Notes: This 77-nucleotide sequence from Magallana gigas belongs to the Rfam family "mir-34 microRNA precursor family". About the family: Human mir-34a was discovered computationally and later experimentally verified. The mature sequence is excised from the 5' arm of the hairpin.

[Rfam]
RNA sequence: GUUUUUGUGGCAGUGUGGUUAGCUGGUUGUUAUGACAACGUAGAACCCACAACCACUAUUCACACUUCCUUGAAACC
Numbered sequence: 001g002u003u004u005u006u007g008u009g010g011c012a013g014u015g016u017g018g019u020u021a022g023c024u025g026g027u028u029g030u031u032a033u034g035a036c037a038a039c040g041u042a043g044a045a046c047c048c049a050c051a052a053c054c055a056c057u058a059u060u061c062a063c064a065c066u067u068c069c070u071u072g073a074a075a076c077c
Stems, first nucleotide, its partner, number of pairs: 003075004009069002012066007020058003024055007

Lineage of the source: Eukaryota > Protostomia > Ostreida > Ostreoidea > Magallana. Rfam 15.1 lists 2,256 matches to the family in 820 species.